[Rfam]
Plastid-ycf2 5UTR RNA: a 75-nucleotide RNA from Zizania palustris.
Lineage of the source: Eukaryota > Embryophyta > Petrosaviidae > Oryzoideae > Zizania.
By type it is a cis-regulatory element.
From the family's description: Plastid ycf2 is a non-coding RNA (ncRNA) recognised in plastids. It was found in the prime untranslated region (5UTR) of ycf2 genes, it presents a tRNA-like motif which suggests it can be involved in mRNA maturation, particularly involved in defining the precise 5' end of the transcript.
The literature on the family includes a 2023 paper in Plant Commun by Richter et al., "Retrograde signaling in plants: A critical review focusing on the GUN pathway and beyond".
RNA sequence: AUGUAUCCAGCAGGAAUUAAACCGACAAAUUUACCAAUUAUAAGUUGGGCACUUUAACCAUUCAGCCAUAGAUGC
Numbered sequence: 001a002u003g004u005a006u007c008c009a010g011c012a013g014g015a016a017u018u019a020a021a022c023c024g025a026c027a028a029a030u031u032u033a034c035c036a037a038u039u040a041u042a043a044g045u046u047g048g049g050c051a052c053u054u055u056a057a058c059c060a061u062u063c064a065g066c067c068a069u070a071g072a073u074g075c
Stems, first nucleotide, its partner, number of pairs: 003075005010026001013023002040069002044066006
Dot-bracket structure: ..(((((..(..((.......))..).............((..((((((...........)))))).)).)))))